The record is a 35-nucleotide RNA sequence from Felis catus, which matches "Iron response element I" in Rfam.
The source organism's lineage runs through Eukaryota, Gnathostomata, Sarcopterygii, Boreoeutheria and Felis.
Its family is annotated with response to iron ion in the Gene Ontology.
The literature on the family includes a 1987 paper in Science by Hentze et al., "Identification of the iron-responsive element for the translational regulation of human ferritin mRNA".
The family has 62 seed sequences and 6,829 matches in Rfam 15.1.
RNA sequence: CUGUCCCUUGCUUCAACAGUGUUUGGACAGAACAG
Numbered sequence: 001c002u003g004u005c006c007c008u009u010g011c012u013u014c015a016a017c018a019g020u021g022u023u024u025g026g027a028c029a030g031a032a033c034a035g
Base pairs, nucleotide, nucleotide: 001035002034003033004032007030008029010028012027013026014025015024016023017021